Background
The record is a 55-nucleotide RNA from Mycolicibacterium sarraceniae, which matches "L31-Actinobacteria ribosomal protein leader" in Rfam. The base pairs follow the family's consensus structure, which is taken from published work. It scores 45 bits against the family's covariance model.
RNA sequence: CAGGUACCGGUUCACGCUCGAUUACCAGGUAAAACAGUAGGGCGACCCGGCGACC
Numbered sequence: 001c002a003g004g005u006a007c008c009g010g011u012u013c014a015c016g017c018u019c020g021a022u023u024a025c026c027a028g029g030u031a032a033a034a035c036a037g038u039a040g041g042g043c044g045a046c047c048c049g050g051c052g053a054c055c
Base pairs, nucleotide, nucleotide: 003055004054005053007050008049009048010047015044016043017042018041019040021038022037023036